[Rfam]
RNA sequence: UGUCUCAGGGCGGGGUGAAAUUCCCCACCGGCGGUGAUGGCGCCCCGUGCGUCGAGCCCGCGAGCGCCUGCGUAAUGCAGGGUCCAGCAGAUCCGGUGCGAUCCCGGAGCCGACGGUCACAGUCCGGAUGAAAGAGAAU
Numbered sequence: 001u002g003u004c005u006c007a008g009g010g011c012g013g014g015g016u017g018a019a020a021u022u023c024c025c026c027a028c029c030g031g032c033g034g035u036g037a038u039g040g041c042g043c044c045c046c047g048u049g050c051g052u053c054g055a056g057c058c059c060g061c062g063a064g065c066g067c068c069u070g071c072g073u074a075a076u077g078c079a080g081g082g083u084c085c086a087g088c089a090g091a092u093c094c095g096g097u098g099c100g101a102u103c104c105c106g107g108a109g110c111c112g113a114c115g116g117u118c119a120c121a122g123u124c125c126g127g128a129u130g131a132a133a134g135a136g137a138a139u
Stems, first nucleotide, its partner, number of pairs: 003137004013025003027123002029112002031061004056110002064088002092108005114126003
Rfam assigns this 139-nucleotide RNA from Acetobacteraceae bacterium AT-5844 to the family "FMN riboswitch aptamer (RFN element)". The base pairs follow the family's consensus structure, which is taken from published work. The RFN element is a highly conserved domain that is found frequently in the 5'-untranslated regions of prokaryotic mRNAs that encode for flavin mononucleotide (FMN) biosynthesis and transport proteins. A search with the family's covariance model found it, with a score of 98 bits.